Rfam assigns this 75-nucleotide RNA sequence from Myotis lucifugus to the family "mir-9223 microRNA precursor family".
RNA sequence: GGCAGUUCUUGGGUGACACACCCCUGAAUCAGACUCCCUCCUCUCUGGUUCUGGGUGUGUCACCCGAGUACCCCA
Number, nucleotide and partner (000 for none) at each position: 001g000002g074003c000004a000005g071006u070007u000008c068009u067010u066011g065012g064013g063014u062015g061016a060017c059018a000019c057020a056021c055022c054023c053024c000025u000026g051027a050028a049029u048030c047031a046032g045033a044034c000035u000036c000037c000038c000039u000040c000041c000042u000043c000044u033045c032046u031047g030048g029049u028050u027051c026052u000053g023054g022055g021056u020057g019058u000059g017060u016061c015062a014063c013064c012065c011066g010067a009068g008069u000070a006071c005072c000073c000074c002075a000
Rfam 15.1 lists 14,641 matches to the family in 28 species. The match comes from Rfam's covariance-model search (80 bits). Rfam links the family to the GO terms miRNA-mediated post-transcriptional gene silencing and RISC complex.